[Rfam]
RNA sequence: CGAGUUGUGGCGGGAGAGUCCUGUCAGUGAGAAUUGGCAGGCGCCGUAGGAGCAAACCCUCCCCGGGAAUCUCUCAGGCACCCGUACCGCCACAGCGAG
Numbered sequence: 001c002g003a004g005u006u007g008u009g010g011c012g013g014g015a016g017a018g019u020c021c022u023g024u025c026a027g028u029g030a031g032a033a034u035u036g037g038c039a040g041g042c043g044c045c046g047u048a049g050g051a052g053c054a055a056a057c058c059c060u061c062c063c064c065g066g067g068a069a070u071c072u073c074u075c076a077g078g079c080a081c082c083c084g085u086a087c088c089g090c091c092a093c094a095g096c097g098a099g
Stems, first nucleotide, its partner, number of pairs: 006094008020041007043079003046075001050073003057065001
This 99-nucleotide sequence from Raineyella antarctica belongs to the Rfam family "Glycine riboswitch aptamer". NCBI's taxonomy places the organism under Bacteria, Bacillati, Propionibacteriales, Propionibacteriaceae, Raineyella. About the family: This family represents the bacterial glycine riboswitch. Rfam links the family to the GO term glycine biosynthetic process.